[Rfam]
RNA sequence: AUGAGAAUAAGGGGAGAGACUGUGUAUACAGCGCCGAAGGAGCAAGCAUUCAUGUGAAUCUCUCAGGCAAAAGAACCCUUGUUGGACG
Numbered sequence: 001a002u003g004a005g006a007a008u009a010a011g012g013g014g015a016g017a018g019a020c021u022g023u024g025u026a027u028a029c030a031g032c033g034c035c036g037a038a039g040g041a042g043c044a045a046g047c048a049u050u051c052a053u054g055u056g057a058a059u060c061u062c063u064c065a066g067g068c069a070a071a072a073g074a075a076c077c078c079u080u081g082u083u084g085g086a087c088g
Stems, first nucleotide, its partner, number of pairs: 006083008020031004033068003036064002040062003046055002
RNA: Glycine riboswitch aptamer
Organism: Bacillus infantis